[Rfam]
RNA sequence: CCGGCUCUCACGAACAAUCCCGCCCGGAGUUUACCGUACUUGAUCUCUUGCGCGGACCUACGGGUGCCCAGA
Numbered sequence: 001c002c003g004g005c006u007c008u009c010a011c012g013a014a015c016a017a018u019c020c021c022g023c024c025c026g027g028a029g030u031u032u033a034c035c036g037u038a039c040u041u042g043a044u045c046u047c048u049u050g051c052g053c054g055g056a057c058c059u060a061c062g063g064g065u066g067c068c069c070a071g072a
Base pairs, nucleotide, nucleotide: 003068004067005066007064008063009062020055021054022053023052024050028041029040031038
Rfam assigns this 72-nucleotide RNA from Leishmania major to the family "Trypanosomatid snoRNA TB11Cs3H1". Rfam's curators put it in the seed alignment. It is annotated as an H/ACA-box small nucleolar RNA. On this family, see Liang et al., RNA 2005: "A genome-wide analysis of C/D and H/ACA-like small nucleolar RNAs in Trypanosoma brucei reveals a trypanosome-specific pattern of rRNA modification".